[Rfam]
RNA sequence: AAAAAGGGCUUCUGCCGUGCGUGGCACGGGGGGGCUCUUGUGGCCGCCCUCGCGGAAUCGACAUCAAGAGAUUUCGGAAGCACAAUUUUUGCAGGAGGGGGCCGCCGGUAACCGCUUGUUCCGGCGCCCUG
Numbered sequence: 001a002a003a004a005a006g007g008g009c010u011u012c013u014g015c016c017g018u019g020c021g022u023g024g025c026a027c028g029g030g031g032g033g034g035c036u037c038u039u040g041u042g043g044c045c046g047c048c049c050u051c052g053c054g055g056a057a058u059c060g061a062c063a064u065c066a067a068g069a070g071a072u073u074u075c076g077g078a079a080g081c082a083c084a085a086u087u088u089u090u091g092c093a094g095g096a097g098g099g100g101g102c103c104g105c106c107g108g109u110a111a112c113c114g115c116u117u118g119u120u121c122c123g124g125c126g127c128c129c130u131g
Base pairs, nucleotide, nucleotide: 008081009080010079011078012077013026014025015024016023017022027052028051029050030049031048032047033045034044035043036042053076054075055074056073057072058071059070099129100128101127102126104125105124106123107122108121110120111119112118